RNA: mir-19 microRNA precursor family
RNA sequence: GUUUACGGCGAGUUUUGUUGGUUUGCUGUCAGCUUCUCUCCGUGUUUGCUGUGCAAAUCCAUGCAAAGCUCUCCGCGGCU
Numbered sequence: 001g002u003u004u005a006c007g008g009c010g011a012g013u014u015u016u017g018u019u020g021g022u023u024u025g026c027u028g029u030c031a032g033c034u035u036c037u038c039u040c041c042g043u044g045u046u047u048g049c050u051g052u053g054c055a056a057a058u059c060c061a062u063g064c065a066a067a068g069c070u071c072u073c074c075g076c077g078g079c080u
Stems, first nucleotide, its partner, number of pairs: 003078002006075003010071009020060002022057005031050003